[Rfam]
Nucleotides: 069
Stems, first nucleotide, its partner, number of pairs: 014035004019030001
Number, partner (000 for none) and nucleotide at each position: 001000u002000a003000a004000u005000u006000u007000u008000g009000c010000a011000g012000g013000c014035u015034g016033a017032u018000a019030g020000a021000u022000c023000a024000a025000a026000g027000a028000g029000g030019u031000c032017a033016u034015c035014a036000u037000a038000u039000a040000c041000a042000u043000a044000a045000a046000a047000a048000u049000c050000a051000u052000u053000u054000a055000a056000a057000u058000a059000a060000u061000a062000u063000u064000g065000g066000c067000a068000u069000g